[Rfam]
RNA sequence: UGAGUUAGUUAGGCAAUCACUGGUUUAUUGAAGCCUAAAGUGUUCUUUAGAACAAACUAGUGGGACAAAUAGACGAGAGGAAAGUCCGAGCUACAAAGGGCAGAGUGCCAGAUAACGUCUGGGAGGCGUGAGCCUACGACUAGUGCAACAGAGAGCAGACCGCCUGUGAUUAAAACACAGGUAAGGGUGAAAGGGUGUGGUAAGAGCACACCGCGUGAAUGGUAACAUUUCACGGCACGGUAAACUCCACUCGUAGCAAGACCAAAUAGGAAUCCAAUGAGUCGCCCGUUCAGGAUUCGGGUAGGUUGCUUGAGCUUGUGUGUGAAUACAAGCCUAGAGGAAUGAUUGUCCACGACAGAACUCGGCUUAUCGACUAACUCAGUUC
Numbered sequence: 001u002g003a004g005u006u007a008g009u010u011a012g013g014c015a016a017u018c019a020c021u022g023g024u025u026u027a028u029u030g031a032a033g034c035c036u037a038a039a040g041u042g043u044u045c046u047u048u049a050g051a052a053c054a055a056a057c058u059a060g061u062g063g064g065a066c067a068a069a070u071a072g073a074c075g076a077g078a079g080g081a082a083a084g085u086c087c088g089a090g091c092u093a094c095a096a097a098g099g100g101c102a103g104a105g106u107g108c109c110a111g112a113u114a115a116c117g118u119c120u121g122g123g124a125g126g127c128g129u130g131a132g133c134c135u136a137c138g139a140c141u142a143g144u145g146c147a148a149c150a151g152a153g154a155g156c157a158g159a160c161c162g163c164c165u166g167u168g169a170u171u172a173a174a175a176c177a178c179a180g181g182u183a184a185g186g187g188u189g190a191a192a193g194g195g196u197g198u199g200g201u202a203a204g205a206g207c208a209c210a211c212c213g214c215g216u217g218a219a220u221g222g223u224a225a226c227a228u229u230u231c232a233c234g235g236c237a238c239g240g241u242a243a244a245c246u247c248c249a250c251u252c253g254u255a256g257c258a259a260g261a262c263c264a265a266a267u268a269g270g271a272a273u274c275c276a277a278u279g280a281g282u283c284g285c286c287c288g289u290u291c292a293g294g295a296u297u298c299g300g301g302u303a304g305g306u307u308g309c310u311u312g313a314g315c316u317u318g319u320g321u322g323u324g325a326a327u328a329c330a331a332g333c334c335u336a337g338a339g340g341a342a343u344g345a346u347u348g349u350c351c352a353c354g355a356c357a358g359a360a361c362u363c364g365g366c367u368u369a370u371c372g373a374c375u376a377a378c379u380c381a382g383u384u385c
Stems, first nucleotide, its partner, number of pairs: 001381010011370001012350007020077002023074006082368003086365005091256004098287004103252005108122005123137001124135004138247002143245002145241002160186002162182007170174001194212006213236001214234005219228003260307004270298006278292005314333008
RNA: Bacterial RNase P class A
Organism: Pseudactinobacillus ducreyi